[Rfam]
RNA sequence: CGUCGCCUGCAUCUUCCCGGUCAAGGCCGGGUUGACCGUGCGAAUUUUUUAAUCUGGUCGUGCCGCUGGCUCACAAGGCCACCGCUAUGCGCACCGCAGUAACCACCUGGCGGCGUCCAGGCAGGCCUGGCGCAGUUUCUCCACUGAUCGGCAUAGCCUUCGGUGGGGCGACGUAGAUAGCACGAAUUGACG
Numbered sequence: 001c002g003u004c005g006c007c008u009g010c011a012u013c014u015u016c017c018c019g020g021u022c023a024a025g026g027c028c029g030g031g032u033u034g035a036c037c038g039u040g041c042g043a044a045u046u047u048u049u050u051a052a053u054c055u056g057g058u059c060g061u062g063c064c065g066c067u068g069g070c071u072c073a074c075a076a077g078g079c080c081a082c083c084g085c086u087a088u089g090c091g092c093a094c095c096g097c098a099g100u101a102a103c104c105a106c107c108u109g110g111c112g113g114c115g116u117c118c119a120g121g122c123a124g125g126c127c128u129g130g131c132g133c134a135g136u137u138u139c140u141c142c143a144c145u146g147a148u149c150g151g152c153a154u155a156g157c158c159u160u161c162g163g164u165g166g167g168g169c170g171a172c173g174u175a176g177a178u179a180g181c182a183c184g185a186a187u188u189g190a191c192g
Base pairs, nucleotide, nucleotide: 004042005041006040012035013034016031017030018029019028020027021026058185059184060183061182062181063180064084065083067081068080069079070078071077088134089133090132091131092130097129098128099127103125104124106121107120108119109118110117136171137170139168140167141166142165143164144163145162146161147160150158151157152156
The family of this 192-nucleotide RNA from Janthinobacterium lividum is "RT-15 RNA". The sequence is in the family's curated seed alignment. By type it is a small RNA. NCBI's taxonomy places the organism under Bacteria, Pseudomonadati, Pseudomonadota, Betaproteobacteria, Janthinobacterium lividum.